Rfam assigns this 97-nucleotide RNA sequence from Pan troglodytes to the family "Y RNA".
Lineage of the source: Eukaryota > Boreoeutheria > Primates > Simiiformes > Pan.
[Rfam]
RNA sequence: GGCUGGUCUGAGUGCAGUGGUGUUUAUAAUUGAUCACAACCAGUUACAGGUUUCUUGGUUCCUUUCCACUCCCACUGCUUCAUCUGACUAGCCUAUG
Numbered sequence: 001g002g003c004u005g006g007u008c009u010g011a012g013u014g015c016a017g018u019g020g021u022g023u024u025u026a027u028a029a030u031u032g033a034u035c036a037c038a039a040c041c042a043g044u045u046a047c048a049g050g051u052u053u054c055u056u057g058g059u060u061c062c063u064u065u066c067c068a069c070u071c072c073c074a075c076u077g078c079u080u081c082a083u084c085u086g087a088c089u090a091g092c093c094u095a096u097g
Base pairs, nucleotide, nucleotide: 001093002092003091004090005089006088007087008086010085014081016076017075018074019073020072022071028060029059030058032056033055

The literature on the family includes a 2000 paper in Nucleic Acids Res by Teunissen et al., "Conserved features of Y RNAs: a comparison of experimentally derived secondary structures". Rfam's curators write: Y RNAs are components of the Ro ribonucleoprotein particle (Ro RNP), in association with Ro60 and La proteins. The Y RNAs and Ro60 and La proteins are well conserved, but the function of the Ro RNP is not known. In humans the RNA component can be one of four small RNAs -- hY1, hY3, hY4 and hY5. These small RNAs are predicted to fold into a conserved secondary structure containing three stem structures. The largest of the four, hY1, contains an additional hairpin. This family includes a significant number of annotated pseudogenes and the model is expected to discriminate poorly between real and Y RNA related pseudogenes.